Notes: The record is a 175-nucleotide RNA sequence from Alteromonas sp. KUL42, which matches "Manganese Mn2+ riboswitch aptamer (yybP-ykoY)" in Rfam. The pairing is the family consensus, mapped onto this sequence. A reference for the family is Dambach et al. (2015), "The ubiquitous yybP-ykoY riboswitch is a manganese-responsive regulatory element", Mol Cell.
[Rfam]
RNA sequence: CGCUACUUCGUUGGGGAGUAGCCUGUUUCUGUUACUAAACAGAAAAGUUCGUAUCAACAUAAUUGGUCACAUUACCAUGGUACGAACACCGCUUGGUUGGCGAGACCUUCGAUAAUUCCGCGCUCCAAGGUCAGGCGUGUGGUUUUGUCGUGGACUCUGUUAAGCCUGGCCGGAG
Numbered sequence: 001c002g003c004u005a006c007u008u009c010g011u012u013g014g015g016g017a018g019u020a021g022c023c024u025g026u027u028u029c030u031g032u033u034a035c036u037a038a039a040c041a042g043a044a045a046a047g048u049u050c051g052u053a054u055c056a057a058c059a060u061a062a063u064u065g066g067u068c069a070c071a072u073u074a075c076c077a078u079g080g081u082a083c084g085a086a087c088a089c090c091g092c093u094u095g096g097u098u099g100g101c102g103a104g105a106c107c108u109u110c111g112a113u114a115a116u117u118c119c120g121c122g123c124u125c126c127a128a129g130g131u132c133a134g135g136c137g138u139g140u141g142g143u144u145u146u147g148u149c150g151u152g153g154a155c156u157c158u159g160u161u162a163a164g165c166c167u168g169g170c171c172g173g174a175g
Base pairs, nucleotide, nucleotide: 026045028044047087048086049085050084051083052082053081054080055079056078064077065076066075067074092175093174094173
Background
Taxonomically the source falls in Alteromonas (Bacteria, Pseudomonadota, Gammaproteobacteria, Alteromonadaceae).